[Rfam]
RNA: SAM-III riboswitch aptamer (SMK box)
RNA sequence: GAAUGUUACAAGUUCCCGAAAGGAUUUAUUUAGCGCUGGUUGAGAGCAUAUGUGAUGCUUCGAUCACCUAAAUAAAGAUGCCUUGUAACCGAAUAUAACUAGGGGGAAUACAUUAUG
Numbered sequence: 001g002a003a004u005g006u007u008a009c010a011a012g013u014u015c016c017c018g019a020a021a022g023g024a025u026u027u028a029u030u031u032a033g034c035g036c037u038g039g040u041u042g043a044g045a046g047c048a049u050a051u052g053u054g055a056u057g058c059u060u061c062g063a064u065c066a067c068c069u070a071a072a073u074a075a076a077g078a079u080g081c082c083u084u085g086u087a088a089c090c091g092a093a094u095a096u097a098a099c100u101a102g103g104g105g106g107a108a109u110a111c112a113u114u115a116u117g
Stems, first nucleotide, its partner, number of pairs: 013108005020084004025076009089103002